[Rfam]
RNA sequence: GCAUGGGUGAAUUCUGCACUAGCUUUCCUCAGUAGCUAAUGCAGUCAGACACCAUGCCAGAAUGAAUUCCCUUUUCACACUUUGAGUAUGCUUUUUCUAUGAGAGCAGGCAUGCCCUUGGAAAUGGGAUACAU
Numbered sequence: 001g002c003a004u005g006g007g008u009g010a011a012u013u014c015u016g017c018a019c020u021a022g023c024u025u026u027c028c029u030c031a032g033u034a035g036c037u038a039a040u041g042c043a044g045u046c047a048g049a050c051a052c053c054a055u056g057c058c059a060g061a062a063u064g065a066a067u068u069c070c071c072u073u074u075u076c077a078c079a080c081u082u083u084g085a086g087u088a089u090g091c092u093u094u095u096u097c098u099a100u101g102a103g104a105g106c107a108g109g110c111a112u113g114c115c116c117u118u119g120g121a122a123a124u125g126g127g128a129u130a131c132a133u
Base pairs, nucleotide, nucleotide: 001057002056003055004054005053006052014044015043016042017041018040070126071125073123074122075121076120081119084116086114087113088112089111090110091109092108093107

Source information:
This 133-nucleotide RNA sequence from Crotophaga sulcirostris belongs to the Rfam family "Small nucleolar RNA SNORA15". About the family: ACA15 is a member of the H/ACA class of snoRNA that guide the sites of modification of uridines to pseudouridines. Pairs were carried over by alignment from the consensus structure, which was predicted with RNAfold. The family has 22 seed sequences and 974 matches in Rfam 15.1.